[Rfam]
RNA sequence: GAGCAACAGCGAAAAGGUUUUACUACUGACCUUUAUAACUAAUACUGUGAAUGUUUCUACCCUUGAUCUGAGCUCA
Numbered sequence: 001g002a003g004c005a006a007c008a009g010c011g012a013a014a015a016g017g018u019u020u021u022a023c024u025a026c027u028g029a030c031c032u033u034u035a036u037a038a039c040u041a042a043u044a045c046u047g048u049g050a051a052u053g054u055u056u057c058u059a060c061c062c063u064u065g066a067u068c069u070g071a072g073c074u075c076a
Stems, first nucleotide, its partner, number of pairs: 001075004013034007
The family of this 76-nucleotide sequence from Capra hircus is "Small nucleolar RNA U2-30". Taxonomically the source falls in Capra (Eukaryota, Gnathostomata, Teleostomi, Ruminantia). The family's consensus secondary structure is taken from published work. It is annotated as a C/D-box small nucleolar RNA.